[Rfam]
t44 RNA: a 117-nucleotide RNA sequence from Alkalimonas amylolytica. Rfam classes the family as a small RNA. Rfam describes the family as follows. This family consists of a number of bacterial RNA genes of between 135 and 170 bases in length. The t44 gene has been identified in several species of enteric bacteria but homologs have also been identified in Pseudomonas and Coxiella species. The t44 gene is found between the map and rpsB genes in all species in the full alignment apart from Shigella flexneri. The function of this RNA is unknown. The family's consensus secondary structure was predicted with LocARNA. The match comes from Rfam's covariance-model search (73 bits). NCBI's taxonomy places the organism under Bacteria, Pseudomonadati, Pseudomonadota, Gammaproteobacteria, Alkalimonas. A reference for the family is Tjaden et al. (2002), "Transcriptome analysis of Escherichia coli using high-density oligonucleotide probe arrays", Nucleic Acids Res.
RNA sequence: CUGCGAAAUGACAAAUAACACACAUACAUCGGCACAUGGGCCGGGGUGCCUGCACUAUCCUGCACAAUAAAGCGGGUUGGUAAGCGGGUCGGAACAUGGGAUGUAUGGAGGCCUAAC
Number, nucleotide and partner (000 for none) at each position: 001c000002u000003g000004c000005g000006a000007a000008a000009u000010g000011a000012c000013a000014a000015a000016u000017a000018a000019c000020a000021c000022a000023c107024a106025u105026a104027c103028a102029u101030c100031g000032g000033c000034a000035c098036a097037u096038g095039g000040g000041c092042c091043g090044g000045g000046g000047u000048g089049c088050c087051u086052g085053c000054a000055c000056u000057a000058u000059c000060c000061u000062g000063c000064a000065c000066a000067a000068u000069a000070a000071a000072g000073c000074g000075g000076g000077u000078u000079g000080g000081u000082a000083a000084g000085c052086g051087g050088g049089u048090c043091g042092g041093a000094a000095c038096a037097u036098g035099g000100g030101a029102u028103g027104u026105a025106u024107g023108g000109a000110g000111g000112c000113c000114u000115a000116a000117c000